[Rfam]
RNA: mir-103/107 microRNA precursor family
Organism: Megalops atlanticus
RNA sequence: GUGAUCUUUCAGUGUCUUUAUGGUGCUGCCUUGUUGCAUGGAGGUCAAGCAGCAUUGUACAUGACUAUCAAAGCCCAC
Numbered sequence: 001g002u003g004a005u006c007u008u009u010c011a012g013u014g015u016c017u018u019u020a021u022g023g024u025g026c027u028g029c030c031u032u033g034u035u036g037c038a039u040g041g042a043g044g045u046c047a048a049g050c051a052g053c054a055u056u057g058u059a060c061a062u063g064a065c066u067a068u069c070a071a072a073g074c075c076c077a078c
Base pairs, nucleotide, nucleotide: 015063017061019059020058021057022056023055024054025053026052027051028050030049031048032047033046